[Rfam]
This 100-nucleotide sequence from Saccharopolyspora elongata belongs to the Rfam family "Glycine riboswitch aptamer".
RNA sequence: CGACGUCGUGCGGGAGAGACUCCGGCCCGUUCCGGGACCGGAGCGCCGAAGGAGCAAUUCUCCCCAGCAAACUCUCAGGCACCGGCACCGCACGGCACCA
Numbered sequence: 001c002g003a004c005g006u007c008g009u010g011c012g013g014g015a016g017a018g019a020c021u022c023c024g025g026c027c028c029g030u031u032c033c034g035g036g037a038c039c040g041g042a043g044c045g046c047c048g049a050a051g052g053a054g055c056a057a058u059u060c061u062c063c064c065c066a067g068c069a070a071a072c073u074c075u076c077a078g079g080c081a082c083c084g085g086c087a088c089c090g091c092a093c094g095g096c097a098c099c100a
Stems, first nucleotide, its partner, number of pairs: 006095008020043006045080003048076002052074003058067002
Its family is annotated with glycine biosynthetic process in the Gene Ontology.